Rfam assigns this 467-nucleotide RNA sequence from Adhaeretor mobilis to the family "Bacterial RNase P class A".
Rfam describes the family as follows. Ribonuclease P (RNase P) is a ubiquitous endoribonuclease, found in archaea, bacteria and eukarya as well as chloroplasts and mitochondria. Its best characterised activity is the generation of mature 5'-ends of tRNAs by cleaving the 5'-leader elements of precursor-tRNAs. Cellular RNase Ps are ribonucleoproteins.
Rfam classes the family as a ribozyme.
RNA sequence: GCAGAGGGCUGGGCGAUCGCCGGUUUGCAGGCAACUGCAGGCGGGAGGAAAGUCCGGGCGCCAUAGGACAGGACGGUGGAUAACGUCCACCGAUCGUGAGACCAGGGAUAGUGCCACAGAAAAGAUACCGCCGAUGGGGGCUGUUGGCCGCUGGCUCUUGGCUUUUAGCUUGUUGUUGGGGGGAAUGUUCCCUUCACACAGGAGCCAGAUGCCAAGAGCCAGCGGCCAACAGCCUCACAGGUAAGGGUGAAAUGGUGCGGUAAGAGCGCACCAGCAGGCGGGGUGACUCGCUUGGCUAGGUAAACCCCGUCCGGCGCAAGGCCAAACAGAGAGCAGAGUCGGUCCGGCUCGUUACGACUCUCGGGUGGGCUGCUAGAGGCGUGCGAGCAAUCGUCGUCGUAGAGGAAUGAUCGUCGCUUGCACCUCGCGUGUGAGUACAGAACCCGGCUUACAGGCCCUCUGCGGUU
Numbered sequence: 001g002c003a004g005a006g007g008g009c010u011g012g013g014c015g016a017u018c019g020c021c022g023g024u025u026u027g028c029a030g031g032c033a034a035c036u037g038c039a040g041g042c043g044g045g046a047g048g049a050a051a052g053u054c055c056g057g058g059c060g061c062c063a064u065a066g067g068a069c070a071g072g073a074c075g076g077u078g079g080a081u082a083a084c085g086u087c088c089a090c091c092g093a094u095c096g097u098g099a100g101a102c103c104a105g106g107g108a109u110a111g112u113g114c115c116a117c118a119g120a121a122a123a124g125a126u127a128c129c130g131c132c133g134a135u136g137g138g139g140g141c142u143g144u145u146g147g148c149c150g151c152u153g154g155c156u157c158u159u160g161g162c163u164u165u166u167a168g169c170u171u172g173u174u175g176u177u178g179g180g181g182g183g184a185a186u187g188u189u190c191c192c193u194u195c196a197c198a199c200a201g202g203a204g205c206c207a208g209a210u211g212c213c214a215a216g217a218g219c220c221a222g223c224g225g226c227c228a229a230c231a232g233c234c235u236c237a238c239a240g241g242u243a244a245g246g247g248u249g250a251a252a253u254g255g256u257g258c259g260g261u262a263a264g265a266g267c268g269c270a271c272c273a274g275c276a277g278g279c280g281g282g283g284u285g286a287c288u289c290g291c292u293u294g295g296c297u298a299g300g301u302a303a304a305c306c307c308c309g310u311c312c313g314g315c316g317c318a319a320g321g322c323c324a325a326a327c328a329g330a331g332a333g334c335a336g337a338g339u340c341g342g343u344c345c346g347g348c349u350c351g352u353u354a355c356g357a358c359u360c361u362c363g364g365g366u367g368g369g370c371u372g373c374u375a376g377a378g379g380c381g382u383g384c385g386a387g388c389a390a391u392c393g394u395c396g397u398c399g400u401a402g403a404g405g406a407a408u409g410a411u412c413g414u415c416g417c418u419u420g421c422a423c424c425u426c427g428c429g430u431g432u433g434a435g436u437a438c439a440g441a442a443c444c445c446g447g448c449u450u451a452c453a454g455g456c457c458c459u460c461u462g463c464g465g466u467u
Stems, first nucleotide, its partner, number of pairs: 001463010011452001012415007020045002023042006050450003054447005059316004066350002069347001071312005076090005091105001092103001094101002106307002111305002113301003128246002130242003135237004254272006274296001275294008320371004329362005341355001345351001378398004383394004
A search with the family's covariance model found it, with a score of 283 bits. Lineage of the source: Bacteria > Planctomycetota > Planctomycetia > Lacipirellulaceae > Adhaeretor. On this family, see Frank and Pace, Annu Rev Biochem 1998: "Ribonuclease P: unity and diversity in a tRNA processing ribozyme".